[Rfam]
RNA sequence: GUUUGUCACUAGGGGAGCCCAGCGGGGCUGAGAUUGGAUGUUCGCGCAUCCUAGACCCUUCGAACCUGAUCUGGAUGAUGCCAGCGUAGGGAAGUGGGACACCAUACGU
Numbered sequence: 001g002u003u004u005g006u007c008a009c010u011a012g013g014g015g016a017g018c019c020c021a022g023c024g025g026g027g028c029u030g031a032g033a034u035u036g037g038a039u040g041u042u043c044g045c046g047c048a049u050c051c052u053a054g055a056c057c058c059u060u061c062g063a064a065c066c067u068g069a070u071c072u073g074g075a076u077g078a079u080g081c082c083a084g085c086g087u088a089g090g091g092a093a094g095u096g097g098g099a100c101a102c103c104a105u106a107c108g109u
Base pairs, nucleotide, nucleotide: 006097007096008095009094010093011059012058013057014056017028018027019026020025036051037050038049039048040047041046065090066089067088068087071084072083073082074081
Record summary:
The family of this 109-nucleotide RNA from Paenibacillus hemerocallicola is "TPP riboswitch aptamer (THI element)". Its family is annotated with thiamine pyrophosphate binding in the Gene Ontology. The match comes from Rfam's covariance-model search (80 bits). Rfam's curators write: Vitamin B(1) in its active form thiamin pyrophosphate (TPP) is an essential coenzyme that is synthesised by coupling of pyrimidine and thiazole moieties in bacteria. The previously detected thiamin-regulatory element, thi box was extended, resulting in a new, highly conserved RNA secondary structure, the THI element, which is widely distributed in eubacteria and also occurs in some archaea.